[Rfam]
Nucleotides: 126
Base pairs, nucleotide, nucleotide: 003039004038005037006036007035008034015032016031018029019028020027049080051078052077053076054075057072058071059070060069061068062067093119094118095117096116097115098114099113100112101111102110103109104108
Number, partner (000 for none) and nucleotide at each position: 001000a002000a003039u004038c005037c006036u007035u008034u009000u010000a011000a012000u013000a014000c015032c016031u017000a018029g019028u020027c021000c022000a023000g024000a025000g026000a027020g028019g029018c030000a031016g032015g033000u034008a035007a036006a037005g038004g039003g040000a041000a042000g043000c044000c045000a046000a047000c048000u049080g050000u051078u052077a053076a054075a055000u056000u057072u058071c059070c060069a061068u062067u063000a064000u065000a066000a067062a068061a069060u070059g071058g072057a073000u074000c075054u076053u077052u078051a079000c080049u081000u082000a083000g084000g085000u086000u087000a088000c089000c090000c091000u092000u093119a094118a095117a096116c097115c098114u099113c100112u101111c102110a103109a104108c105000a106000u107000u108104g109103u110102u111101g112100a113099g114098a115097g116096g117095u118094u119093u120000u121000c122000u123000u124000u125000a126000g
A member of the RNA family "PyrR binding site" from Paenisporosarcina antarctica, 126 nucleotides long. The base pairs follow the family's consensus structure, which is taken from published work. For this family Rfam cites "Molecular recognition of pyr mRNA by the Bacillus subtilis attenuation regulatory protein PyrR" (Bonner et al., Nucleic Acids Res, 2001). It scores 62 bits against the family's covariance model. By type it is a cis-regulatory element.